The family of this 166-nucleotide sequence from Eubacterium sp. CAG:156 is "Clostridiales-1 RNA". Rfam classes the family as a small RNA. The family's consensus secondary structure is taken from published work.
RNA sequence: UGAUGCCAGGGUCAAAAGGUCUAAGCCCAUAUGAGCUUGCUCAUAAGUGGGUGAAAGACCUUGGGACCCGCCCCAAUAUGAGCAUAAAAGCGGGAUGAUUCCCGCGAUAUGCGAAUAUUGGGUAGGAUUGUGAGAGUGCGUAGCACGAAACAAUCCGCAGGCAUCU
Numbered sequence: 001u002g003a004u005g006c007c008a009g010g011g012u013c014a015a016a017a018g019g020u021c022u023a024a025g026c027c028c029a030u031a032u033g034a035g036c037u038u039g040c041u042c043a044u045a046a047g048u049g050g051g052u053g054a055a056a057g058a059c060c061u062u063g064g065g066a067c068c069c070g071c072c073c074c075a076a077u078a079u080g081a082g083c084a085u086a087a088a089a090g091c092g093g094g095a096u097g098a099u100u101c102c103c104g105c106g107a108u109a110u111g112c113g114a115a116u117a118u119u120g121g122g123u124a125g126g127a128u129u130g131u132g133a134g135a136g137u138g139c140g141u142a143g144c145a146c147g148a149a150a151c152a153a154u155c156c157g158c159a160g161g162c163a164u165c166u
Stems, first nucleotide, its partner, number of pairs: 002165006010068004016062007026051005031044005072122008082112004090105006125156007136146004